[Rfam]
RNA: Guanidine-I riboswitch aptamer
Organism: Pseudanabaena sp. FACHB-2040
RNA sequence: GGUCAUAGUGUCUAGGGUUCCGGCUUAGCUCGCAGUUAAGUGUCUGGUCCAAGAGAUGCUGCCAAGUCAAAUCUUUAUGGAUUUAACUUGGUUCACGGAGGGAUAAAAGCCCGGGAGAA
Numbered sequence: 001g002g003u004c005a006u007a008g009u010g011u012c013u014a015g016g017g018u019u020c021c022g023g024c025u026u027a028g029c030u031c032g033c034a035g036u037u038a039a040g041u042g043u044c045u046g047g048u049c050c051a052a053g054a055g056a057u058g059c060u061g062c063c064a065a066g067u068c069a070a071a072u073c074u075u076u077a078u079g080g081a082u083u084u085a086a087c088u089u090g091g092u093u094c095a096c097g098g099a100g101g102g103a104u105a106a107a108a109g110c111c112c113g114g115g116a117g118a119a
Stems, first nucleotide, its partner, number of pairs: 007060006015050002020047002022044001023041006061092007094114001096117001100112003